[Rfam]
RNA sequence: UCUGAGAAUAGAGGUGCGAGUAUGAUGAGUCACUCAUAGGAGGGUUAUGGGCCCUGUGAUUAUGAGUAAAAGGCAUACUUGCCGAAAUGAAAAGUAGCCCUACUACUUUUUGUUGGGACAGCAUUUAAGAGAUGCUGUACUGUCACAAAUCGAUCAUUUGUGGAGAACUAUUGAGGAG
Numbered sequence: 001u002c003u004g005a006g007a008a009u010a011g012a013g014g015u016g017c018g019a020g021u022a023u024g025a026u027g028a029g030u031c032a033c034u035c036a037u038a039g040g041a042g043g044g045u046u047a048u049g050g051g052c053c054c055u056g057u058g059a060u061u062a063u064g065a066g067u068a069a070a071a072g073g074c075a076u077a078c079u080u081g082c083c084g085a086a087a088u089g090a091a092a093a094g095u096a097g098c099c100c101u102a103c104u105a106c107u108u109u110u111u112g113u114u115g116g117g118a119c120a121g122c123a124u125u126u127a128a129g130a131g132a133u134g135c136u137g138u139a140c141u142g143u144c145a146c147a148a149a150u151c152g153a154u155c156a157u158u159u160g161u162g163g164a165g166a167a168c169u170a171u172u173g174a175g176g177a178g
Base pairs, nucleotide, nucleotide: 007172008171009170010169011168016082017081018080019079020078021077022076023075024074032067033066034065035064036063037062038061039060086114087113088112089111090110091109092108093107094106095105096104097103115141116140118138119137120136121135122134123133124132125131143163144162145161146160147159148158149157